Shown here is a 68-nucleotide sequence from Nematostella vectensis, a member of the family "mir-9437 microRNA precursor family".
The source organism's lineage runs through Eukaryota, Opisthokonta, Metazoa, Hexacorallia and Nematostella.
[Rfam]
RNA sequence: CCCAGACAAGAAUCUGAUACGGUUCCAGUCAGACCAGAGGGGGAAGACGCUAAUACGGGUUCGUAACC
Numbered sequence: 001c002c003c004a005g006a007c008a009a010g011a012a013u014c015u016g017a018u019a020c021g022g023u024u025c026c027a028g029u030c031a032g033a034c035c036a037g038a039g040g041g042g043g044a045a046g047a048c049g050c051u052a053a054u055a056c057g058g059g060u061u062c063g064u065a066a067c068c
Base pairs, nucleotide, nucleotide: 010062011061012060013059014058015057016056017054018053020049021048023044024043025042026041029038030037